[Rfam]
The record is a 101-nucleotide sequence from Lacicoccus alkaliphilus, which matches "Purine riboswitch aptamer" in Rfam. The match comes from Rfam's covariance-model search (69 bits). Pairs were carried over by alignment from the consensus structure, which is taken from published work. The family has 133 seed sequences and 4,097 matches in Rfam 15.1. The source organism's lineage runs through Bacteria, Bacilli, Caryophanales, Salinicoccaceae and Lacicoccus alkaliphilus.
RNA sequence: AUCAUAAGUAAUUAUUUAUUUCAUAUAAUCACAAUAAUAUGGAUUGUGAGUUUCUAGGGUUUUCCUUAAAAAAACCUGCUAUGAGAUAACAAUUAAUUGAA
Numbered sequence: 001a002u003c004a005u006a007a008g009u010a011a012u013u014a015u016u017u018a019u020u021u022c023a024u025a026u027a028a029u030c031a032c033a034a035u036a037a038u039a040u041g042g043a044u045u046g047u048g049a050g051u052u053u054c055u056a057g058g059g060u061u062u063u064c065c066u067u068a069a070a071a072a073a074a075c076c077u078g079c080u081a082u083g084a085g086a087u088a089a090c091a092a093u094u095a096a097u098u099g100a101a
Base pairs, nucleotide, nucleotide: 018087019086020085021084022083023082024081025080029049030048031047032046033045034044035043057077058076059075060074061073062072063071